[Rfam]
RNA sequence: CGGCACCACAGGGAGAGAGCGGAUCAUCCGCCGCCGAAGGAGCAACCGCCCCGGAAACUCUCAGGCAAAAGGACCAGUGGGCUGA
Number, nucleotide and partner (000 for none) at each position: 001c000002g000003g000004c000005a000006c080007c079008a078009c077010a000011g075012g074013g000014a000015g000016a000017g000018a000019g031020c030021g029022g028023a000024u000025c000026a000027u000028c022029c021030g020031c019032c000033g066034c065035c064036g062037a061038a000039g000040g060041a059042g058043c000044a000045a000046c054047c053048g000049c000050c000051c000052c000053g047054g046055a000056a000057a000058c042059u041060c040061u037062c036063a000064g035065g034066c033067a000068a000069a000070a000071g000072g000073a000074c012075c011076a000077g009078u008079g007080g006081g000082c000083u000084g000085a000